[Rfam]
RNA sequence: GCUGGUCGGGGUAACGCUCGGCUGUCACCCAUGUGGGGGCUGGACGAUGGAGGGUUUCUCGUUCGCACAUCUGCUGUCCGCGCUGCAGAAGGGCCCCCUCUCUGAGGACCGUGUGGCCGUGUGUCGGUUGGUGUAGGCCAUCCGACCUUGGCCUCUAAGGCACGCGACACCGGGCUAGGCCCGACAGGGAGCAGCCAAAACGCGUCGCACGGUCCAGCAGAAGGACAAGGCCUUGAGGCACGGGCAGGUCAACGGGUGUGCGGGCGGGGAGUGCAACUGCGCCUUU
Numbered sequence: 001g002c003u004g005g006u007c008g009g010g011g012u013a014a015c016g017c018u019c020g021g022c023u024g025u026c027a028c029c030c031a032u033g034u035g036g037g038g039g040c041u042g043g044a045c046g047a048u049g050g051a052g053g054g055u056u057u058c059u060c061g062u063u064c065g066c067a068c069a070u071c072u073g074c075u076g077u078c079c080g081c082g083c084u085g086c087a088g089a090a091g092g093g094c095c096c097c098c099u100c101u102c103u104g105a106g107g108a109c110c111g112u113g114u115g116g117c118c119g120u121g122u123g124u125c126g127g128u129u130g131g132u133g134u135a136g137g138c139c140a141u142c143c144g145a146c147c148u149u150g151g152c153c154u155c156u157a158a159g160g161c162a163c164g165c166g167a168c169a170c171c172g173g174g175c176u177a178g179g180c181c182c183g184a185c186a187g188g189g190a191g192c193a194g195c196c197a198a199a200a201c202g203c204g205u206c207g208c209a210c211g212g213u214c215c216a217g218c219a220g221a222a223g224g225a226c227a228a229g230g231c232c233u234u235g236a237g238g239c240a241c242g243g244g245c246a247g248g249u250c251a252a253c254g255g256g257u258g259u260g261c262g263g264g265c266g267g268g269g270a271g272u273g274c275a276a277c278u279g280c281g282c283c284u285u286u
Stems, first nucleotide, its partner, number of pairs: 001040003004023007028037003043286002046283001048281002051278001053277001054274002057271001058268016080241001082239003086235001090234006097224002101221004106215009115153005121147001123146005129140004154160002162205005173196003180189003
This 286-nucleotide sequence from Diacronema lutheri belongs to the Rfam family "Metazoan signal recognition particle RNA". The match comes from Rfam's covariance-model search (117 bits). The base pairs follow the family's consensus structure, which is taken from published work. The family has 91 seed sequences and 383,523 matches in Rfam 15.1. About the family: The signal recognition particle (SRP) is a universally conserved ribonucleoprotein. It is involved in the co-translational targeting of proteins to membranes. The eukaryotic SRP consists of a 300-nucleotide 7S RNA and six proteins: SRPs 72, 68, 54, 19, 14, and 9. Archaeal SRP consists of a 7S RNA and homologues of the eukaryotic SRP19 and SRP54 proteins. Eukaryotic and archaeal 7S RNAs have very similar secondary structures, as represented by this family. Eight helical elements fold into the Alu and S domains, separated by a long linker region. The Alu domain is thought to mediate the peptide chain elongation retardation function of the SRP. The universally conserved helix which interacts with the SRP54 M domain mediates signal sequence recognition. In eukaryotes and archaea, the SRP19-helix 6 complex is thought to be involved in SRP assembly and stabilises helix 8 for SRP54 binding. The Signal Recognition Particle Database (SRPDB) provides compilations of SRP components, with phylogenetic data and structural illustrations. Many sequences below the threshold for this family are clearly closely related, but are most likely to be SRP RNA derived pseudogenes. The human genome in particular is known to contain a large amount of SRP RNA related sequence, including Alu repeats. While the threshold of this family is set high so as to minimise the number of hits to such regions, it is likely that some remain.